[Rfam]
RNA: UnaL2 LINE 3' element
RNA sequence: AAUGCACCAAUUUGUAAGUUACUCUGGAUAAGAGUGUCUGCUAAAUGAUGUAAA
Numbered sequence: 001a002a003u004g005c006a007c008c009a010a011u012u013u014g015u016a017a018g019u020u021a022c023u024c025u026g027g028a029u030a031a032g033a034g035u036g037u038c039u040g041c042u043a044a045a046u047g048a049u050g051u052a053a054a
Stems, first nucleotide, its partner, number of pairs: 013043001014041003020036006